[Rfam]
Shown here is a 59-nucleotide RNA sequence from Streptomyces hainanensis, a member of the family "L17-Actino-Proteobacteria ribosomal protein leader".
RNA sequence: GUGUUCGGGAUCCACCCGGGCGCCAUGACUGACGUCGGUACCUGACACGGCCGGCGCAG
Number, nucleotide and partner (000 for none) at each position: 001g023002u022003g021004u020005u019006c018007g017008g016009g015010a000011u000012c000013c000014a000015c009016c008017c007018g006019g005020g004021c003022g002023c001024c000025a000026u000027g000028a000029c059030u058031g057032a000033c056034g055035u054036c053037g052038g051039u050040a000041c000042c000043u000044g000045a000046c000047a000048c000049g000050g039051c038052c037053g036054g035055c034056g033057c031058a030059g029